[Rfam]
RNA: U12 minor spliceosomal RNA
RNA sequence: CUACGUUAAACUAAUAAGUAAGGAAAACAAAGCAGGCAGUGAGAACUGACUGCAGCGCCAACCGAAAAGAAUUUUGGUGUGUAAGAAUUUGUGGAGGGGGCAUAGAUUGGCCGAGUGCUAACCCUGCUGACUUUUGCAGAACUCGCUUUUGCUGGCCUCCCAC
Number, nucleotide and partner (000 for none) at each position: 001c000002u000003a000004c023005g000006u021007u020008a019009a000010a000011c000012u000013a000014a000015u000016a000017a000018g000019u008020a007021a006022g000023g004024a000025a000026a000027a000028c000029a000030a000031a000032g053033c052034a051035g050036g000037c048038a047039g046040u000041g000042a000043g000044a000045a000046c039047u038048g037049a000050c035051u034052g033053c032054a000055g082056c081057g080058c079059c000060a000061a000062c000063c000064g000065a000066a000067a000068a000069g000070a000071a000072u000073u000074u000075u000076g000077g000078u000079g058080u057081g056082u055083a000084a000085g000086a000087a000088u000089u000090u000091g000092u000093g000094g000095a000096g000097g163098g000099g161100g160101c000102a000103u000104a158105g157106a000107u155108u154109g153110g152111c000112c000113g149114a148115g000116u000117g146118c145119u000120a143121a000122c000123c000124c139125u138126g137127c136128u000129g000130a000131c000132u000133u000134u000135u000136g127137c126138a125139g124140a000141a000142c000143u120144c000145g118146c117147u000148u114149u113150u000151g000152c110153u109154g108155g107156c000157c105158u104159c000160c100161c099162a000163c097